[Rfam]
A member of the RNA family "c-di-GMP-I riboswitch aptamer" from Ferroacidibacillus organovorans, 96 nucleotides long. GEMM was predicted in a large-scale screen for bacterial structured RNA regulatory elements. A search with the family's covariance model found it, with a score of 66 bits. On this family, see Weinberg et al., Nucleic Acids Res 2007: "Identification of 22 candidate structured RNAs in bacteria using the CMfinder comparative genomics pipeline".
RNA sequence: GUCCUAUUAAGGCAAAAUGCGUGAAAACGCGUGACGCAAAGCUAAAGGGGCUAACAGGCAGAGAUACUACUUGCCUCAAGCCAGCCAGUUGCCAUC
Numbered sequence: 001g002u003c004c005u006a007u008u009a010a011g012g013c014a015a016a017a018u019g020c021g022u023g024a025a026a027a028c029g030c031g032u033g034a035c036g037c038a039a040a041g042c043u044a045a046a047g048g049g050g051c052u053a054a055c056a057g058g059c060a061g062a063g064a065u066a067c068u069a070c071u072u073g074c075c076u077c078a079a080g081c082c083a084g085c086c087a088g089u090u091g092c093c094a095u096c
Stems, first nucleotide, its partner, number of pairs: 012037002017032006040090004047086002049082003056076006